The record is a 184-nucleotide sequence from Luteimonas gilva, which matches "6S / SsrS RNA" in Rfam.

RNA sequence: CGUCCUCUGCCGUGUUCGACGGCGUGCAAAACAUUCGCCUUGUCCCUUAAAAACGACACCGGGAAUGCGACGACGCCAGGCGUGCAAGUCCGCCCCGUUGCGGAAAGCCCGAAGGCCUCCCAGCGUUCCCACUUGAACCCCGGGUUCAAGGUCGUUUCGCAUGCAUCGGCAUGGCGGAGGAUGC
Numbered sequence: 001c002g003u004c005c006u007c008u009g010c011c012g013u014g015u016u017c018g019a020c021g022g023c024g025u026g027c028a029a030a031a032c033a034u035u036c037g038c039c040u041u042g043u044c045c046c047u048u049a050a051a052a053a054c055g056a057c058a059c060c061g062g063g064a065a066u067g068c069g070a071c072g073a074c075g076c077c078a079g080g081c082g083u084g085c086a087a088g089u090c091c092g093c094c095c096c097g098u099u100g101c102g103g104a105a106a107g108c109c110c111g112a113a114g115g116c117c118u119c120c121c122a123g124c125g126u127u128c129c130c131a132c133u134u135g136a137a138c139c140c141c142g143g144g145u146u147c148a149a150g151g152u153c154g155u156u157u158c159g160c161a162u163g164c165a166u167c168g169g170c171a172u173g174g175c176g177g178a179g180g181a182u183g184c
Base pairs, nucleotide, nucleotide: 002182003181004180005179006178007177008176009175010174011173012172013171014170015169017168018167019166037152038151039150041148042147045144046143061130062129063128065126066125067124068123072119073118075116077115084108085107089104090103091102092101093100

The family's consensus secondary structure is taken from published work. The organism belongs to Luteimonas, within Bacteria.